[Rfam]
RNA: eL15-Euryarchaeota ribosomal protein leader
RNA sequence: CCCGGUUCGCCGGGACGAGAUGUGGUCUGGGUGACGGACGGUCGCCACGACUGAAUCGCAAG
Dot-bracket structure: (((((....))))).(((.....((((.....................))))...)))....